[Rfam]
RNA: DUF3800-IX RNA
RNA sequence: AACCCGUUUGCCGAACUGUCACCGGAUGGUGUGCGUUCCCUCGCGGGAUAGGCGACGGGUUUCUG
Numbered sequence: 001a002a003c004c005c006g007u008u009u010g011c012c013g014a015a016c017u018g019u020c021a022c023c024g025g026a027u028g029g030u031g032u033g034c035g036u037u038c039c040c041u042c043g044c045g046g047g048a049u050a051g052g053c054g055a056c057g058g059g060u061u062u063c064u065g
Base pairs, nucleotide, nucleotide: 001061002060003059004058005057006056007055008054010053011052012051017035018034019033020031021030022029023028037048038047039046040045